[Rfam]
The family of this 600-nucleotide part of an RNA from Trichinella nativa is "Eukaryotic small subunit ribosomal RNA". Its family is annotated with structural constituent of ribosome and ribosome in the Gene Ontology.
RNA sequence: AGUCAUAUGCUUGUCUCAAAGAUUAAGCCAUGCAUGUGUAAGCACACACUGUUUUAAAAGUGAAGCCGCGAAUGGCUCAUUACAACAGCCACAGUUUAUUAGAACUUACAAUCAUGGAUAACUGUGGUAAUUCUAGAGCUAAUACACGCACAAAAACUUCAACUGAAUUGGUUGAAGUGCUUUUAUUAGAACAAAAACCGAACGGCGUUUGACGAAUGUUGAACGUCGAAACUGUUUGGUGAAUCUGAAUAACUAUUUCUGAUCGCAUGGUCUAGCACCGGCGACAUCACUUUCAAGUGUCUGCCUUAUCAACCUUCGAUGGUAGUCUAUGCGACUACCAUGGUGAUAACGGGUAACGGAGAAUCAGGGUUCGACUCCGGAGAGGGAGCCUGAGAAACGGCUACCACAUCCAAGGAAGGCAGCAGGCGCGCAAAUUACCCACUCCCAGCUUGGGGAGGUAGUGACGAAAAAUAACGAGACGAUUCUCGUUUGAGAAACGUUAUCGAAAUGAGUACGCUUUACACACGCUAACGAGUAGCAAUUGGAGGGCAAGUCUGGUGCCAGCAGCCGCGGUAAUUCCAGCUCCAAUAGCGUAUAUUA
Numbered sequence: 001a002g003u004c005a006u007a008u009g010c011u012u013g014u015c016u017c018a019a020a021g022a023u024u025a026a027g028c029c030a031u032g033c034a035u036g037u038g039u040a041a042g043c044a045c046a047c048a049c050u051g052u053u054u055u056a057a058a059a060g061u062g063a064a065g066c067c068g069c070g071a072a073u074g075g076c077u078c079a080u081u082a083c084a085a086c087a088g089c090c091a092c093a094g095u096u097u098a099u100u101a102g103a104a105c106u107u108a109c110a111a112u113c114a115u116g117g118a119u120a121a122c123u124g125u126g127g128u129a130a131u132u133c134u135a136g137a138g139c140u141a142a143u144a145c146a147c148g149c150a151c152a153a154a155a156a157c158u159u160c161a162a163c164u165g166a167a168u169u170g171g172u173u174g175a176a177g178u179g180c181u182u183u184u185a186u187u188a189g190a191a192c193a194a195a196a197a198c199c200g201a202a203c204g205g206c207g208u209u210u211g212a213c214g215a216a217u218g219u220u221g222a223a224c225g226u227c228g229a230a231a232c233u234g235u236u237u238g239g240u241g242a243a244u245c246u247g248a249a250u251a252a253c254u255a256u257u258u259c260u261g262a263u264c265g266c267a268u269g270g271u272c273u274a275g276c277a278c279c280g281g282c283g284a285c286a287u288c289a290c291u292u293u294c295a296a297g298u299g300u301c302u303g304c305c306u307u308a309u310c311a312a313c314c315u316u317c318g319a320u321g322g323u324a325g326u327c328u329a330u331g332c333g334a335c336u337a338c339c340a341u342g343g344u345g346a347u348a349a350c351g352g353g354u355a356a357c358g359g360a361g362a363a364u365c366a367g368g369g370u371u372c373g374a375c376u377c378c379g380g381a382g383a384g385g386g387a388g389c390c391u392g393a394g395a396a397a398c399g400g401c402u403a404c405c406a407c408a409u410c411c412a413a414g415g416a417a418g419g420c421a422g423c424a425g426g427c428g429c430g431c432a433a434a435u436u437a438c439c440c441a442c443u444c445c446c447a448g449c450u451u452g453g454g455g456a457g458g459u460a461g462u463g464a465c466g467a468a469a470a471a472u473a474a475c476g477a478g479a480c481g482a483u484u485c486u487c488g489u490u491u492g493a494g495a496a497a498c499g500u501u502a503u504c505g506a507a508a509u510g511a512g513u514a515c516g517c518u519u520u521a522c523a524c525a526c527g528c529u530a531a532c533g534a535g536u537a538g539c540a541a542u543u544g545g546a547g548g549g550c551a552a553g554u555c556u557g558g559u560g561c562c563a564g565c566a567g568c569c570g571c572g573g574u575a576a577u578u579c580c581a582g583c584u585c586c587a588a589u590a591g592c593g594u595a596u597a598u599u600a
Stems, first nucleotide, its partner, number of pairs: 001599003005596007014469001016467002020462001021429001027427003031424003036069002042066002048061002076382003086303003091298002095296002101291002113148001115146002122138002125135003156178005163171002183252005197240009263284004268280004305353003312344003319341008357379004361372004384405002387402003407418001409416002435460001437459003443455005475505003478501004483496005512532002514529001516528002542588006555582004564571002